Annotation: Rfam assigns this 74-nucleotide RNA from Crocodylus porosus to the family "Mammalian CPEB3 ribozyme". The organism belongs to Crocodylus, within Eukaryota. The base pairs follow the family's consensus structure, which is taken from published work. Rfam links the family to the GO term RNA nuclease activity.
[Rfam]
RNA sequence: ACUGCUACAACAGUCAUAGCAGAAACACUCACAUGGCAGCCCUGUUAGAUUCUAAUGAAUCUGCAAAUUCUGCU
Numbered sequence: 001a002c003u004g005c006u007a008c009a010a011c012a013g014u015c016a017u018a019g020c021a022g023a024a025a026c027a028c029u030c031a032c033a034u035g036g037c038a039g040c041c042c043u044g045u046u047a048g049a050u051u052c053u054a055a056u057g058a059a060u061c062u063g064c065a066a067a068u069u070c071u072g073c074u
Stems, first nucleotide, its partner, number of pairs: 013040002018074007026036001046063007